A member of the RNA family "terC RNA" from Aquamicrobium lusatiense, 55 nucleotides long.

[Rfam]
RNA sequence: GCACCAGGCCGGGCCCCUCUGGCAGUCAAUUUGGCUGUGAUGUCGGACUGGAAUU
Numbered sequence: 001g002c003a004c005c006a007g008g009c010c011g012g013g014c015c016c017c018u019c020u021g022g023c024a025g026u027c028a029a030u031u032u033g034g035c036u037g038u039g040a041u042g043u044c045g046g047a048c049u050g051g052a053a054u055u
Stems, first nucleotide, its partner, number of pairs: 006049002009046004022038007
It scores 56 bits against the family's covariance model. The organism belongs to Aquamicrobium, within Bacteria. Rfam 15.1 lists 1,112 matches to the family in 772 species.